Shown here is an 83-nucleotide sequence from Fukomys damarensis, a member of the family "mir-632 microRNA precursor family".
RNA sequence: CCUGCCGCAGUUCCUGACGGGAGACGGAGCGCAAACGAGGGUGUCGGCCAUUUUGUGUCGGCUUCCUGUGGGACGCGUUGGUG
Numbered sequence: 001c002c003u004g005c006c007g008c009a010g011u012u013c014c015u016g017a018c019g020g021g022a023g024a025c026g027g028a029g030c031g032c033a034a035a036c037g038a039g040g041g042u043g044u045c046g047g048c049c050a051u052u053u054u055g056u057g058u059c060g061g062c063u064u065c066c067u068g069u070g071g072g073a074c075g076c077g078u079u080g081g082u083g
Stems, first nucleotide, its partner, number of pairs: 002081003006077003010074002014072002017069007025061001027059002029056003036046003
Annotation:
On this family, see Brameier, BMC Res Notes 2010: "Genome-wide comparative analysis of microRNAs in three non-human primates". Its family is annotated with RISC complex and miRNA-mediated post-transcriptional gene silencing in the Gene Ontology. The source organism's lineage runs through Eukaryota, Gnathostomata, Teleostomi, Boreoeutheria and Fukomys.